[Rfam]
RNA: Group I catalytic intron
RNA sequence: AUAUAUGAGCCAUGAUCCUCGAUGUUACGUAAGGGGAAAACGUAAUUGUGGGGAUAAACUGCCAAACUCCGGGGAACUCCUAAAGCUUAAGGUACCAAGCUAUAGUUGAAAAACUAUAAGUGGCUGAAGUAAUUACUCAGGUAUGGUAAGAAGCCUUAAGAUUUGUGAAAACAAAAUGGACAAUCGCGGAUCUAAGUCAACAGUAUAUAAAAAUACUGUUGUAAAAGAGCAACGAGUAGACGGUAGUUGAUCUAUUAAUAAAAAUUUAAUAGGUUUAAGGUGUACUCUUACAGGUUUCGAAAGAAAUAG
Number, nucleotide and partner (000 for none) at each position: 001a023002u022003a000004u000005a000006u000007g000008a000009g000010c000011c000012a000013u000014g000015a000016u000017c000018c000019u000020c000021g000022a002023u001024g000025u000026u000027a000028c000029g000030u000031a000032a000033g000034g000035g041036g000037a000038a000039a000040a000041c035042g000043u000044a000045a000046u000047u000048g000049u000050g000051g000052g000053g000054a000055u000056a000057a248058a247059c246060u245061g244062c000063c242064a000065a000066a000067c000068u190069c189070c188071g187072g185073g184074g000075a000076a000077c000078u180079c179080c178081u000082a000083a000084a000085g000086c000087u000088u000089a000090a000091g000092g000093u000094a000095c000096c000097a000098a000099g000100c000101u000102a000103u000104a000105g000106u000107u000108g000109a000110a000111a000112a000113a000114c000115u000116a000117u000118a000119a000120g000121u000122g000123g000124c000125u000126g000127a000128a000129g000130u000131a000132a000133u000134u000135a000136c000137u000138c000139a000140g000141g000142u000143a000144u000145g000146g000147u000148a000149a000150g000151a000152a000153g000154c000155c000156u000157u000158a000159a000160g000161a000162u000163u000164u000165g000166u000167g000168a000169a000170a000171a000172c000173a000174a000175a000176a000177u000178g080179g079180a078181c000182a000183a000184u073185c072186g000187c071188g070189g069190a068191u228192c227193u000194a000195a000196g000197u000198c221199a220200a000201c000202a000203g216204u215205a214206u213207a000208u000209a000210a000211a000212a000213a206214u205215a204216c203217u000218g000219u000220u199221g198222u000223a000224a000225a000226a000227g192228a191229g000230c000231a000232a288233c000234g287235a286236g285237u284238a283239g000240a000241c000242g063243g000244u061245a060246g059247u058248u057249g000250a274251u273252c272253u271254a270255u269256u268257a267258a266259u000260a000261a000262a000263a000264a000265u000266u258267u257268a256269a255270u254271a253272g252273g251274u250275u000276u000277a000278a000279g000280g000281u000282g000283u238284a237285c236286u235287c234288u232289u000290a000291c000292a000293g000294g307295u306296u305297u304298c303299g000300a000301a000302a000303g298304a297305a296306a295307u294308a000309g000